tRNA: a 71-nucleotide RNA from Clostridium thermosuccinogenes. Pairs were carried over by alignment from the consensus structure, which is taken from published work. It scores 57 bits against the family's covariance model. Rfam's curators write: Transfer RNA (tRNA) molecules are approximately 80 nucleotides in length.

[Rfam]
RNA sequence: UGCGGGUUUGUGUAAUGGUAGCACAAGUGACUCUGGAUCACUCUGUCAGGGUUCGAAUCCUUGACCCGCAG
Numbered sequence: 001u002g003c004g005g006g007u008u009u010g011u012g013u014a015a016u017g018g019u020a021g022c023a024c025a026a027g028u029g030a031c032u033c034u035g036g037a038u039c040a041c042u043c044u045g046u047c048a049g050g051g052u053u054c055g056a057a058u059c060c061u062u063g064a065c066c067c068g069c070a071g
Base pairs, nucleotide, nucleotide: 001070002069003068004067005066006065007064010024011023012022013021026042027041028040029039030038047063048062049061050060051059